RNA sequence: UUUUAUUUUUUCAAUGACGAGACCUUGGUUUGAAAUACGUUAAUGAUAUACAUACAUUUUAUUCGUCACUACCACUGAGAAAAAAUGAUU
Numbered sequence: 001u002u003u004u005a006u007u008u009u010u011u012c013a014a015u016g017a018c019g020a021g022a023c024c025u026u027g028g029u030u031u032g033a034a035a036u037a038c039g040u041u042a043a044u045g046a047u048a049u050a051c052a053u054a055c056a057u058u059u060u061a062u063u064c065g066u067c068a069c070u071a072c073c074a075c076u077g078a079g080a081a082a083a084a085a086u087g088a089u090u
Stems, first nucleotide, its partner, number of pairs: 003088010